[Rfam]
RNA: Bacterial small signal recognition particle RNA
RNA sequence: UGCCGGGUCUUGCGCAAUAGGAACUCAUGAAUCGCGUCAGGUCCGGAAGGAAGCAGCGCUAAGUGAUCAUUCCUAUGUGCCGCAGGGGUGCCUGGUAUCU
Numbered sequence: 001u002g003c004c005g006g007g008u009c010u011u012g013c014g015c016a017a018u019a020g021g022a023a024c025u026c027a028u029g030a031a032u033c034g035c036g037u038c039a040g041g042u043c044c045g046g047a048a049g050g051a052a053g054c055a056g057c058g059c060u061a062a063g064u065g066a067u068c069a070u071u072c073c074u075a076u077g078u079g080c081c082g083c084a085g086g087g088g089u090g091c092c093u094g095g096u097a098u099c100u
Base pairs, nucleotide, nucleotide: 004094005093006092007091008090009086010085011084012083013082014081015077017076018075019074020073021072022071025066026065027064028063034059035058036057037056042051043050044049